[Rfam]
RNA sequence: UGCCAGUCUAACAGAAUCAUCUCUGCACAGACUCUGGUCUCUGGCAUUCAGUGUGCGGAAAUGCUUCUGUUCCACUGGAG
Numbered sequence: 001u002g003c004c005a006g007u008c009u010a011a012c013a014g015a016a017u018c019a020u021c022u023c024u025g026c027a028c029a030g031a032c033u034c035u036g037g038u039c040u041c042u043g044g045c046a047u048u049c050a051g052u053g054u055g056c057g058g059a060a061a062u063g064c065u066u067c068u069g070u071u072c073c074a075c076u077g078g079a080g
Base pairs, nucleotide, nucleotide: 001080004077005076006075007074010071011070012069013068014067015066016065018063019062020061022059023058024057025056026055027054028053029052032051033050

Shown here is an 80-nucleotide RNA from Anguilla anguilla, a member of the family "mir-147 microRNA precursor family". NCBI's taxonomy places the organism under Eukaryota, Chordata, Craniata, Anguillidae, Anguilla.